[Rfam]
RNA sequence: UGUGACAGUAGAGGUGCAAAAACCAUUAGUAAGCUAACCGAGGAAAUUAAGGGUUUCCUAAGACAUUAGCUAAAAGGGGAAUUUGCCGAAGAAAAUAAAAACCCUAAUUUUAUUUUCUGGUUUUACAUUGAAGAAGUGUAAAACUGCCAUUUAGCCAGUAGCUAGAUGGAGCGCUAUUUUCACA
Dot-bracket structure: ......(((((....(((((..((.......((((((............................))))))......))..)))))...(((((((((((.......)))))))))))(((((((((((.....))))))))))).(((((((.........)))))))....)))))......
RNA: Lysine riboswitch aptamer
Organism: Lottiidibacillus patelloidae